[Rfam]
RNA sequence: CAUCCAGACACGGGGUGCCCGGACGACGGGCUGAGAACCACACCCGUAACCACCUGAUCUAGGUCAUGCUAGCGAAGGGAUGUCGUCAUGACUGUCC
Dot-bracket structure: ......((((((((.((((((.....)))))........)..))))......(((...((((......))))...)))..)))).............
TPP riboswitch aptamer (THI element): a 97-nucleotide RNA from Nakamurella multipartita. The base pairs follow the family's consensus structure, which is taken from published work. Vitamin B(1) in its active form thiamin pyrophosphate (TPP) is an essential coenzyme that is synthesised by coupling of pyrimidine and thiazole moieties in bacteria. The match comes from Rfam's covariance-model search (62 bits).